[Rfam]
RNA sequence: ACAAUGAUACUCCCGUCCCGUCACAGUCCGAGCGGUAACCAAUCCGCCGCAGGCAAUGAGGGCGGCUCUGUCAGACCGACAGUUGGGGUGCAACUCCCGUGG
Numbered sequence: 001a002c003a004a005u006g007a008u009a010c011u012c013c014c015g016u017c018c019c020g021u022c023a024c025a026g027u028c029c030g031a032g033c034g035g036u037a038a039c040c041a042a043u044c045c046g047c048c049g050c051a052g053g054c055a056a057u058g059a060g061g062g063c064g065g066c067u068c069u070g071u072c073a074g075a076c077c078g079a080c081a082g083u084u085g086g087g088g089u090g091c092a093a094c095u096c097c098c099g100u101g102g
Stems, first nucleotide, its partner, number of pairs: 012099001013065006066085001068082001070080003086098003
Shown here is a 102-nucleotide sequence from a Bacteroidaceae bacterium, a member of the family "pemK RNA". The match comes from Rfam's covariance-model search (42 bits). By type it is a cis-regulatory element.